RNA sequence: ACACUAUAUUAUGUAUAAAUGUAUACACACUUCUAUAUAUGUCCACAUAUAUGCGGUGUGUGUAUUAUACAGGUAUAGGUGUG
Numbered sequence: 001a002c003a004c005u006a007u008a009u010u011a012u013g014u015a016u017a018a019a020u021g022u023a024u025a026c027a028c029a030c031u032u033c034u035a036u037a038u039a040u041g042u043c044c045a046c047a048u049a050u051a052u053g054c055g056g057u058g059u060g061u062g063u064a065u066u067a068u069a070c071a072g073g074u075a076u077a078g079g080u081g082u083g
Stems, first nucleotide, its partner, number of pairs: 001080002004078006012071007020064009034051005040045001
Shown here is an 83-nucleotide sequence from Mus musculus, a member of the family "mir-568 microRNA precursor family". Pairs were carried over by alignment from the consensus structure, which was predicted with RNAalifold. Rfam links the family to the GO terms RISC complex and miRNA-mediated post-transcriptional gene silencing.